[Rfam]
RNA sequence: CAUCGAAAAUAGCCGAGUUCCGCUAGGCGGAAACGGGGGAACCAUGUAUUUCUGGGGUGAAUGGUUGCGCUUUUUGGCAGCCUAGGGAGUCCUUUCGACCGAAUCCUUCAGCUAACCUCGUAGGCUCUUGAAGGGAGCAGUU
Numbered sequence: 001c002a003u004c005g006a007a008a009a010u011a012g013c014c015g016a017g018u019u020c021c022g023c024u025a026g027g028c029g030g031a032a033a034c035g036g037g038g039g040a041a042c043c044a045u046g047u048a049u050u051u052c053u054g055g056g057g058u059g060a061a062u063g064g065u066u067g068c069g070c071u072u073u074u075u076g077g078c079a080g081c082c083u084a085g086g087g088a089g090u091c092c093u094u095u096c097g098a099c100c101g102a103a104u105c106c107u108u109c110a111g112c113u114a115a116c117c118u119c120g121u122a123g124g125c126u127c128u129u130g131a132a133g134g135g136a137g138c139a140g141u142u
Stems, first nucleotide, its partner, number of pairs: 011126004018032003033121006043054002055106003063082006085100002
This 142-nucleotide RNA sequence from Brevibacillus centrosporus belongs to the Rfam family "c-di-AMP riboswitch aptamer (ydaO/yuaA leader)". The match comes from Rfam's covariance-model search (82 bits). Taxonomically the source falls in Brevibacillus (Bacteria, Bacillati, Bacillota, Paenibacillaceae).